[Rfam]
RNA: Group II catalytic intron D1-D4-3
RNA sequence: GGAAGGGCGACCGACCGUGGAGAGGAAGCGUGGAGCGAAACUGCGAGCCGAUGUACAAGAACCGGAUAGAAGGCGCUGCCGAGCAGGGCGAGCGGGCAUGAAACCGCGAAGCUCUUGUGGUCAAAGCGAAGCGGCGUAAAUCCGGCGGUUGUGCGGUGAAGGAGUGCGUUC
Numbered sequence: 001g002g003a004a005g006g007g008c009g010a011c012c013g014a015c016c017g018u019g020g021a022g023a024g025g026a027a028g029c030g031u032g033g034a035g036c037g038a039a040a041c042u043g044c045g046a047g048c049c050g051a052u053g054u055a056c057a058a059g060a061a062c063c064g065g066a067u068a069g070a071a072g073g074c075g076c077u078g079c080c081g082a083g084c085a086g087g088g089c090g091a092g093c094g095g096g097c098a099u100g101a102a103a104c105c106g107c108g109a110a111g112c113u114c115u116u117g118u119g120g121u122c123a124a125a126g127c128g129a130a131g132c133g134g135c136g137u138a139a140a141u142c143c144g145g146c147g148g149u150u151g152u153g154c155g156g157u158g159a160a161g162g163a164g165u166g167c168g169u170u171c
Base pairs, nucleotide, nucleotide: 001016002015005012006011028171030169031168032167036162040157041156042155043154044153045152046150047149048148049147050146062145063144064143065142066141067140073137074136075135077133078132079131083127086114087113088112089111092107093106094105095104